[Rfam]
RNA sequence: UCGUGCUAGAUGGGGAGGUAGCGGUGCCCUGAACCUGCAACCCGCUGUAGCAGGGUCGAAUUCCUGUCCCCGGCCCCGGAUUUUAGGGUCUGACCUGGGCAAGUGGUGUUGACGGCCGGGUCCCGUGCGGCGUAAGUUUGUAAACCCCGUCAGGUCCGGAAGGAAGCAGCGGUAAGCAAGUUCUUGCGGGUGUUACGGGGCAGCCUGGCCUGAGUUAACUGCUAGGGUAACGCUUAGGAAAACGGGUCAAAGGCAGGUGCACGA
Numbered sequence: 001u002c003g004u005g006c007u008a009g010a011u012g013g014g015g016a017g018g019u020a021g022c023g024g025u026g027c028c029c030u031g032a033a034c035c036u037g038c039a040a041c042c043c044g045c046u047g048u049a050g051c052a053g054g055g056u057c058g059a060a061u062u063c064c065u066g067u068c069c070c071c072g073g074c075c076c077c078g079g080a081u082u083u084u085a086g087g088g089u090c091u092g093a094c095c096u097g098g099g100c101a102a103g104u105g106g107u108g109u110u111g112a113c114g115g116c117c118g119g120g121u122c123c124c125g126u127g128c129g130g131c132g133u134a135a136g137u138u139u140g141u142a143a144a145c146c147c148c149g150u151c152a153g154g155u156c157c158g159g160a161a162g163g164a165a166g167c168a169g170c171g172g173u174a175a176g177c178a179a180g181u182u183c184u185u186g187c188g189g190g191u192g193u194u195a196c197g198g199g200g201c202a203g204c205c206u207g208g209c210c211u212g213a214g215u216u217a218a219c220u221g222c223u224a225g226g227g228u229a230a231c232g233c234u235u236a237g238g239a240a241a242a243c244g245g246g247u248c249a250a251a252g253g254c255a256g257g258u259g260c261a262c263g264a
Stems, first nucleotide, its partner, number of pairs: 001264006009057003012030004017025001019023001034054005063257006072248005081239007091229002095226002098223003103219002105216003114210008122199006128190001131188005136181006147172004155164003
Rfam assigns this 264-nucleotide RNA sequence from Dethiobacter sp. to the family "Bacterial large signal recognition particle RNA". NCBI's taxonomy places the organism under Bacteria, Bacillati, Bacillota, Dethiobacteria, Dethiobacter. The literature on the family includes a 2003 paper in Nucleic Acids Res by Rosenblad et al., "SRPDB: Signal Recognition Particle Database". By type it is a non-coding RNA gene. Its family is annotated with signal recognition particle, plasma membrane targeting and SRP-dependent cotranslational protein targeting to membrane, signal sequence recognition in the Gene Ontology. Clan: SRP clan. It scores 193 bits against the family's covariance model. The family's consensus secondary structure is taken from published work. The signal recognition particle (SRP) is a universally conserved ribonucleoprotein involved in the co-translational targeting of proteins to membranes.